[Rfam]
Shown here is a 382-nucleotide sequence from Niveibacterium umoris, a member of the family "Bacterial RNase P class A". Ribonuclease P (RNase P) is a ubiquitous endoribonuclease, found in archaea, bacteria and eukarya as well as chloroplasts and mitochondria. Its best characterised activity is the generation of mature 5'-ends of tRNAs by cleaving the 5'-leader elements of precursor-tRNAs. Cellular RNase Ps are ribonucleoproteins. RNA from bacterial RNase Ps retains its catalytic activity in the absence of the protein subunit, i.e. it is a ribozyme. Isolated eukaryotic and archaeal RNase P RNA has not been shown to retain its catalytic function, but is still essential for the catalytic activity of the holoenzyme. Although the archaeal and eukaryotic holoenzyme s have a much greater protein content than the bacterial ones, the RNA cores from all the three lineages are homologous -- helices corresponding to P1, P2, P3, P4, and P10/11 are common to all cellular RNase P RNAs. Yet, there is considerable sequence variation, particularly among the eukaryotic RNAs. Identified in Yersinia as Ysr151/RnpB. It scores 287 bits against the family's covariance model.
RNA sequence: GAAGUCCGCCAGGCAGUCGCGGUACCGCGAGGUAUCGAGGAAAGUCCGGGCCCCGCAGGGCAGAAUGCCGGCUAACGGCCGGGCGCUAUAAGCCGAAAGGCCCAAGGCGACGGAAAGUGCAACAGAGAGCAGACCGCCGAUGGCCCCGCAAGGGGAUCAGGUAAGGGUGAAACGGUGGGGUAAGAGCCCACCGCGUCCGUGGUGACACGUACGGCACGGUAAACCCCAUUCGGGGCAAGGCCAAAUAGGGGAGCGUUGAGGCGGCCCGCUGAGCUCCCGGGUAGGCUGCUAGAGCUUCGCAGCAAUGCGUCGACCAGAGGAAUGACUGCCCCGUCUCCGCAAGGGGGCGCGACAGAACCCGGCUUAUCGGCGGACUUCCACU
Numbered sequence: 001g002a003a004g005u006c007c008g009c010c011a012g013g014c015a016g017u018c019g020c021g022g023u024a025c026c027g028c029g030a031g032g033u034a035u036c037g038a039g040g041a042a043a044g045u046c047c048g049g050g051c052c053c054c055g056c057a058g059g060g061c062a063g064a065a066u067g068c069c070g071g072c073u074a075a076c077g078g079c080c081g082g083g084c085g086c087u088a089u090a091a092g093c094c095g096a097a098a099g100g101c102c103c104a105a106g107g108c109g110a111c112g113g114a115a116a117g118u119g120c121a122a123c124a125g126a127g128a129g130c131a132g133a134c135c136g137c138c139g140a141u142g143g144c145c146c147c148g149c150a151a152g153g154g155g156a157u158c159a160g161g162u163a164a165g166g167g168u169g170a171a172a173c174g175g176u177g178g179g180g181u182a183a184g185a186g187c188c189c190a191c192c193g194c195g196u197c198c199g200u201g202g203u204g205a206c207a208c209g210u211a212c213g214g215c216a217c218g219g220u221a222a223a224c225c226c227c228a229u230u231c232g233g234g235g236c237a238a239g240g241c242c243a244a245a246u247a248g249g250g251g252a253g254c255g256u257u258g259a260g261g262c263g264g265c266c267c268g269c270u271g272a273g274c275u276c277c278c279g280g281g282u283a284g285g286c287u288g289c290u291a292g293a294g295c296u297u298c299g300c301a302g303c304a305a306u307g308c309g310u311c312g313a314c315c316a317g318a319g320g321a322a323u324g325a326c327u328g329c330c331c332c333g334u335c336u337c338c339g340c341a342a343g344g345g346g347g348c349g350c351g352a353c354a355g356a357a358c359c360c361g362g363c364u365u366a367u368c369g370g371c372g373g374a375c376u377u378c379c380a381c382u
Stems, first nucleotide, its partner, number of pairs: 001378010011367001012330007020037007042365003046362005051235004058267004063231005068082005083111001084109004112226002117224002119220002134166002136162003141159003145155002174192006193215001194213003198209004239287004249278006260270003295312001298309004